[Rfam]
RNA sequence: UUCUAAUGAACAUGUUCUCCUUUUUUGUUUUUGUUAACAGAAAAGGAACAGUUUUAGUAAUUGGAAAUAUUGUUUGUGUGUUGUAAUUGGACAGCGGCCAGACAACCGUAGAGAUGGUAUCCACAGGUGGUGGGGUUUUUCACUCACUCGUCUACUGAUUCCAUCCCACAUUU
Number, nucleotide and partner (000 for none) at each position: 001u000002u065003c064004u063005a062006a061007u000008g000009a053010a052011c051012a000013u050014g049015u048016u000017c000018u047019c046020c045021u044022u043023u042024u041025u040026u039027g038028u000029u000030u000031u000032u000033g000034u000035u000036a000037a000038c027039a026040g025041a024042a023043a022044a021045g020046g019047a018048a015049c014050a013051g011052u010053u009054u000055u000056a000057g000058u000059a000060a000061u006062u005063g004064g003065a002066a000067a000068u000069a000070u000071u000072g000073u000074u000075u000076g000077u000078g000079u000080g000081u000082u000083g000084u000085a000086a000087u000088u000089g000090g000091a000092c000093a000094g000095c000096g000097g000098c000099c000100a000101g000102a000103c000104a000105a000106c000107c000108g000109u000110a000111g167112a000113g165114a164115u163116g162117g161118u000119a160120u000121c000122c000123a000124c000125a000126g000127g000128u000129g000130g149131u000132g147133g000134g000135g000136u000137u000138u000139u000140u000141c000142a000143c000144u000145c000146a000147c132148u000149c130150g000151u000152c000153u000154a000155c000156u000157g000158a000159u000160u119161c117162c116163a115164u114165c113166c000167c111168a000169c000170a000171u000172u000173u000
Rfam assigns this 173-nucleotide RNA from Lupinus albus to the family "small nucleolar RNA snoR143". The source organism's lineage runs through Eukaryota, Euphyllophyta, rosids, Fabales and Lupinus. A search with the family's covariance model found it, with a score of 66 bits. For this family Rfam cites "Mining small RNA sequencing data: a new approach to identify small nucleolar RNAs in Arabidopsis" (Chen and Wu, Nucleic Acids Res, 2009).